[Rfam]
RNA sequence: UCACUCUCGAGAGUCCGCCUGGCAGGAGCGGGGGAACCACUUCGGAGCCACGGCCUGGCCGCGACUCCUUGGGGUGAAGCCGGUACGGCCCUCACGGGCCACACCGGCCGGGCAACCUCAGCCCGAACCCGACAGCUCACCUCGUAGGCACUGAGAGGUUCA
Numbered sequence: 001u002c003a004c005u006c007u008c009g010a011g012a013g014u015c016c017g018c019c020u021g022g023c024a025g026g027a028g029c030g031g032g033g034g035a036a037c038c039a040c041u042u043c044g045g046a047g048c049c050a051c052g053g054c055c056u057g058g059c060c061g062c063g064a065c066u067c068c069u070u071g072g073g074g075u076g077a078a079g080c081c082g083g084u085a086c087g088g089c090c091c092u093c094a095c096g097g098g099c100c101a102c103a104c105c106g107g108c109c110g111g112g113c114a115a116c117c118u119c120a121g122c123c124c125g126a127a128c129c130c131g132a133c134a135g136c137u138c139a140c141c142u143c144g145u146a147g148g149c150a151c152u153g154a155g156a157g158g159u160u161c162a
Stems, first nucleotide, its partner, number of pairs: 001147001005027003028145006038071002072130003080107004110124004
This 162-nucleotide sequence from Phycicoccus sp. HDW14 belongs to the Rfam family "c-di-AMP riboswitch aptamer (ydaO/yuaA leader)". It scores 63 bits against the family's covariance model. Rfam 15.1 lists 7,607 matches to the family in 2,262 species. Lineage of the source: Bacteria > Actinomycetota > Actinomycetes > Micrococcales > Phycicoccus. Gene Ontology terms of the family: regulation of gene expression and cyclic-di-AMP binding. The pairing is the family consensus, mapped onto this sequence.